The record is a 74-nucleotide sequence from Ceratitis capitata, which matches "mir-310 microRNA precursor family" in Rfam. A search with the family's covariance model found it, with a score of 51 bits. NCBI's taxonomy places the organism under Eukaryota, Opisthokonta, Bilateria, Brachycera, Ceratitis. Its Rfam clan is "mir-92 microRNA precursor clan".
[Rfam]
Nucleotides: 074
Base pairs, nucleotide, nucleotide: 001074002073003072004071005070006069007068010065011064013062014061016059017058019055020054022052024051025050026049027048028047029046030045
Number, partner (000 for none) and nucleotide at each position: 001074u002073u003072g004071c005070a006069c007068g008000c009000a010065g011064g012000g013062c014061g015000g016059g017058a018000a019055a020054g021000u022052g023000a024051c025050a026049a027048u028047g029046u030045u031000u032000u033000a034000u035000a036000u037000u038000a039000u040000a041000a042000a043000u044000u045030a046029a047028u048027a049026u050025u051024g052022c053000a054020c055019u056000u057000g058017u059016c060000c061014c062013g063000g064011c065010c066000u067000a068007u069006g070005u071004g072003c073002g074001g